Shown here is a 225-nucleotide RNA from Pseudomonas sp. THAF187a, a member of the family "sRNA regulator of biofilms A". For this family Rfam cites "A novel small RNA is important for biofilm formation and pathogenicity in Pseudomonas aeruginosa" (Taylor et al., PLoS One, 2017). Important for biofilm formation and pathogenicity. Bacterial strain with deleted SrbA had reduced biofilm mass. As the ability to form biofilms can contribute to the ability a pathogen to thrive within the host, the C. elegans hosts infected with the srbA deleted strain displayed significantly lower mortality rate than the wild-type strain. Rfam classes the family as a small RNA.
RNA sequence: GCCAGGGGUCCUGAAAAGGAUCUCCAGAUCGCCCGCGAAGUACUUCGCGACGAUCCGUGUCCCAACAGCCCACAAGGCCGUACGACGAGGUUGCGACUGGAACGUAGUUGUCCUGAGGGACGGGGAAGCGUUUAGCGUCAGACAGAUCGAAAGCCCAGCAGGUGCCCAAGGUUUCCACGAGCCGACCCGCACUGGCGACGUCACCGAACUGUUAGCUGCAUCUCC
Numbered sequence: 001g002c003c004a005g006g007g008g009u010c011c012u013g014a015a016a017a018g019g020a021u022c023u024c025c026a027g028a029u030c031g032c033c034c035g036c037g038a039a040g041u042a043c044u045u046c047g048c049g050a051c052g053a054u055c056c057g058u059g060u061c062c063c064a065a066c067a068g069c070c071c072a073c074a075a076g077g078c079c080g081u082a083c084g085a086c087g088a089g090g091u092u093g094c095g096a097c098u099g100g101a102a103c104g105u106a107g108u109u110g111u112c113c114u115g116a117g118g119g120a121c122g123g124g125g126a127a128g129c130g131u132u133u134a135g136c137g138u139c140a141g142a143c144a145g146a147u148c149g150a151a152a153g154c155c156c157a158g159c160a161g162g163u164g165c166c167c168a169a170g171g172u173u174u175c176c177a178c179g180a181g182c183c184g185a186c187c188c189g190c191a192c193u194g195g196c197g198a199c200g201u202c203a204c205c206g207a208a209c210u211g212u213u214a215g216c217u218g219c220a221u222c223u224c225c
Stems, first nucleotide, its partner, number of pairs: 005024008028054004034049003038045001056149002059147003068078003080136002084132004113125002163191003170183003199215001200213001202211002